[Rfam]
RNA sequence: GCGUGUGUAUCCACUUCAAUCCACAUGUGUUGGAGUAAAUUGGAAUGUAACUUAAUUUAAUUCCACUCCAAUUCACUUCAACACAUGUGGAUUGAGAUGAAUACAUGC
Numbered sequence: 001g002c003g004u005g006u007g008u009a010u011c012c013a014c015u016u017c018a019a020u021c022c023a024c025a026u027g028u029g030u031u032g033g034a035g036u037a038a039a040u041u042g043g044a045a046u047g048u049a050a051c052u053u054a055a056u057u058u059a060a061u062u063c064c065a066c067u068c069c070a071a072u073u074c075a076c077u078u079c080a081a082c083a084c085a086u087g088u089g090g091a092u093u094g095a096g097a098u099g100a101a102u103a104c105a106u107g108c
Stems, first nucleotide, its partner, number of pairs: 004107007012099002016095017035076002038073006046065002
The family of this 108-nucleotide sequence from Miscanthus lutarioriparius is "MIR5565 microRNA precursor family". Lineage of the source: Eukaryota > Streptophytina > Spermatophyta > Andropogonodae > Miscanthus. The family's consensus secondary structure was predicted with RNAalifold.